The family of this 307-nucleotide RNA from Balaeniceps rex is "7SK RNA". Lineage of the source: Eukaryota > Archosauria > Saurischia > Theropoda > Balaeniceps. The family's RNA type in Rfam is non-coding RNA gene. On this family, see Blencowe, Curr Biol 2002: "Transcription: surprising role for an elusive small nuclear RNA". The match comes from Rfam's covariance-model search (306 bits). Clan: 7SK clan. The base pairs follow the family's consensus structure, which is taken from published work.
RNA sequence: GGAUGUGAGGGCGAUCUGGCUGCGACAUCUGUCACCCCAUUGAUCACCAGGGUUGAUUCGGCUGAUCUGGCUGGCUAGGCGGGUGUCCCCUUCCUCCCUCACCGCUCCAUGUGCGUCCCUCCCGAAGCUGCGCGCUCGGUCAAAGAGGAUGACCUUCCCCGAUAGAGGCGUACCGUUCAUCGGUCAAGGGUAUACGGUAGCUGUGCUCCCCUGCUAGAACCUCCAAACAAGCUCAAGGUCCAUUUGUAGGAGAAUGUAGGGUAGUCAAGCUUCCAGUCAUGGCAGUCAGGUGAAGUCCCCCAUGACU
Numbered sequence: 001g002g003a004u005g006u007g008a009g010g011g012c013g014a015u016c017u018g019g020c021u022g023c024g025a026c027a028u029c030u031g032u033c034a035c036c037c038c039a040u041u042g043a044u045c046a047c048c049a050g051g052g053u054u055g056a057u058u059c060g061g062c063u064g065a066u067c068u069g070g071c072u073g074g075c076u077a078g079g080c081g082g083g084u085g086u087c088c089c090c091u092u093c094c095u096c097c098c099u100c101a102c103c104g105c106u107c108c109a110u111g112u113g114c115g116u117c118c119c120u121c122c123c124g125a126a127g128c129u130g131c132g133c134g135c136u137c138g139g140u141c142a143a144a145g146a147g148g149a150u151g152a153c154c155u156u157c158c159c160c161g162a163u164a165g166a167g168g169c170g171u172a173c174c175g176u177u178c179a180u181c182g183g184u185c186a187a188g189g190g191u192a193u194a195c196g197g198u199a200g201c202u203g204u205g206c207u208c209c210c211c212u213g214c215u216a217g218a219a220c221c222u223c224c225a226a227a228c229a230a231g232c233u234c235a236a237g238g239u240c241c242a243u244u245u246g247u248a249g250g251a252g253a254a255u256g257u258a259g260g261g262u263a264g265u266c267a268a269g270c271u272u273c274c275a276g277u278c279a280u281g282g283c284a285g286u287c288a289g290g291u292g293a294a295g296u297c298c299c300c301c302a303u304g305a306c307u
Stems, first nucleotide, its partner, number of pairs: 001108003005102007013093002018090002024087010035074002037070003042067004047061002117170001118168004122139004127135002140162002147158003200270003206264002209261006221252004227247005284307004289300002292298001